[Rfam]
RNA sequence: AAAAAGGGCUUCUGCCGUGCGUGGCACGGGGGGGCUCUUGCGGCUGCCCCCGCGGAAUCGACAUCAAGAGAUUUCGGAAGCACAAUUUUUGUAGGAGGGGAUCGCCGGUAACCGCUUGUUCUGGCUCCCCG
Numbered sequence: 001a002a003a004a005a006g007g008g009c010u011u012c013u014g015c016c017g018u019g020c021g022u023g024g025c026a027c028g029g030g031g032g033g034g035c036u037c038u039u040g041c042g043g044c045u046g047c048c049c050c051c052g053c054g055g056a057a058u059c060g061a062c063a064u065c066a067a068g069a070g071a072u073u074u075c076g077g078a079a080g081c082a083c084a085a086u087u088u089u090u091g092u093a094g095g096a097g098g099g100g101a102u103c104g105c106c107g108g109u110a111a112c113c114g115c116u117u118g119u120u121c122u123g124g125c126u127c128c129c130c131g
Stems, first nucleotide, its partner, number of pairs: 008081005013026005027052006034044003053076007098129004104125005110120003
RNA: U11 spliceosomal RNA
Organism: Columbina picui